[Rfam]
RNA sequence: AGCCCUAAUUUGGAGUAGAGUAGAUUGGUAGGAUCAGCUGACCAUACUAAUCUACCCUACUUCAAGUUUGCGCCC
Numbered sequence: 001a002g003c004c005c006u007a008a009u010u011u012g013g014a015g016u017a018g019a020g021u022a023g024a025u026u027g028g029u030a031g032g033a034u035c036a037g038c039u040g041a042c043c044a045u046a047c048u049a050a051u052c053u054a055c056c057c058u059a060c061u062u063c064a065a066g067u068u069u070g071c072g073c074c075c
Base pairs, nucleotide, nucleotide: 002073003072005070007068008067009066011064012063013062014061015060016059017058018057020055021054022053023052025050026049027048028047029046030045032043034041035040
The record is a 75-nucleotide sequence from Haemonchus placei, which matches "mir-5928 microRNA precursor family" in Rfam. Pairs were carried over by alignment from the consensus structure, which was predicted with RNAalifold.